[Rfam]
RNA sequence: ACCCCAUUCAAAUAAGCCGGCUAUGUGUUGAUAAAGCCUUCACAUGGUGUGCUAAGGAUGGGAAUAUUAAAUCUGAAAUGUGUAUGGCAUAAAGAGUGUAUCUCUUAGUGACCAAAGGAAUUUCAGAAACA
Numbered sequence: 001a002c003c004c005c006a007u008u009c010a011a012a013u014a015a016g017c018c019g020g021c022u023a024u025g026u027g028u029u030g031a032u033a034a035a036g037c038c039u040u041c042a043c044a045u046g047g048u049g050u051g052c053u054a055a056g057g058a059u060g061g062g063a064a065u066a067u068u069a070a071a072u073c074u075g076a077a078a079u080g081u082g083u084a085u086g087g088c089a090u091a092a093a094g095a096g097u098g099u100a101u102c103u104c105u106u107a108g109u110g111a112c113c114a115a116a117g118g119a120a121u122u123u124c125a126g127a128a129a130c131a
Base pairs, nucleotide, nucleotide: 020048021047022046023045024044025043026042027041073126074125075124076123085114086113087112088108091106092105094104
RNA: Small nucleolar RNA snoR639/H1